[Rfam]
RNA sequence: AUUUCAUUCAUUGUCAUUGUAGAAGCGUGCUCGUCGCGACCCCUGCCAGCCCUUUUCAGGGCUGCAAUUCUACA
Numbered sequence: 001a002u003u004u005c006a007u008u009c010a011u012u013g014u015c016a017u018u019g020u021a022g023a024a025g026c027g028u029g030c031u032c033g034u035c036g037c038g039a040c041c042c043c044u045g046c047c048a049g050c051c052c053u054u055u056u057c058a059g060g061g062c063u064g065c066a067a068u069u070c071u072a073c074a
Stems, first nucleotide, its partner, number of pairs: 013040003018074007025037003047064007

Rfam assigns this 74-nucleotide RNA from Parnassius apollo to the family "Mammalian CPEB3 ribozyme".
The family's consensus secondary structure is taken from published work.